[Rfam]
Ribosomal S15 leader: a 115-nucleotide RNA sequence from Alginatibacterium sediminis.
NCBI's taxonomy places the organism under Bacteria, Pseudomonadati, Pseudomonadota, Alteromonadales, Alginatibacterium.
The family is grouped with related families in Rfam's "Ribosomal Protein S15 Leader clan".
Rfam describes the family as follows. The E. coli Ribosomal S15 gene 5' UTR can form two alternative structures. One that is a series of three hairpins, The other includes a pseudoknot.
By type it is a cis-regulatory leader.
For this family Rfam cites "Pseudoknot and translational control in the expression of the S15 ribosomal protein" (Benard et al., Biochimie, 1996).
RNA sequence: CUUCAUCGCUGAGUUAGUGAUCGGCGAUGAGUAAACAUAUCAUUUUUUAGGAGUAAACAUGUCACUAAGUGUUGAAGAAACAUCAAAAAUCAUUGCAGAAUUCGGCCGUGCCGAA
Numbered sequence: 001c002u003u004c005a006u007c008g009c010u011g012a013g014u015u016a017g018u019g020a021u022c023g024g025c026g027a028u029g030a031g032u033a034a035a036c037a038u039a040u041c042a043u044u045u046u047u048u049a050g051g052a053g054u055a056a057a058c059a060u061g062u063c064a065c066u067a068a069g070u071g072u073u074g075a076a077g078a079a080a081c082a083u084c085a086a087a088a089a090u091c092a093u094u095g096c097a098g099a100a101u102u103c104g105g106c107c108g109u110g111c112c113g114a115a
Stems, first nucleotide, its partner, number of pairs: 007026006047069002050066002053063001